This 129-nucleotide sequence from Sarcophilus harrisii belongs to the Rfam family "Small nucleolar RNA SNORA65". The organism belongs to Sarcophilus, within Eukaryota. Pairs were carried over by alignment from the consensus structure, which was predicted with RNAalifold. From the family's description: U65 belongs to the H/ACA class of snoRNAs which are thought to guide the sites of modification of uridines to pseudouridines. Clan: SNORA65 clan. Rfam links the family to the GO terms RNA processing and nucleolus.
RNA sequence: CCCGCCACUGCACCUGGUUCCAUUAUGUUGGCUGGUGCAAUCCAGUGGUGAGCUGAAAGAAAAACCCAGCUUAGGAAACAGAGUUAUUCUGCUUGUGGGUCACUCUGUGCCGAAAGCUUGGGAACAUGG
Numbered sequence: 001c002c003c004g005c006c007a008c009u010g011c012a013c014c015u016g017g018u019u020c021c022a023u024u025a026u027g028u029u030g031g032c033u034g035g036u037g038c039a040a041u042c043c044a045g046u047g048g049u050g051a052g053c054u055g056a057a058a059g060a061a062a063a064a065c066c067c068a069g070c071u072u073a074g075g076a077a078a079c080a081g082a083g084u085u086a087u088u089c090u091g092c093u094u095g096u097g098g099g100u101c102a103c104u105c106u107g108u109g110c111c112g113a114a115a116g117c118u119u120g121g122g123a124a125c126a127u128g129g
Stems, first nucleotide, its partner, number of pairs: 005048006019035002023030001065122004069117004074111002079107006087099003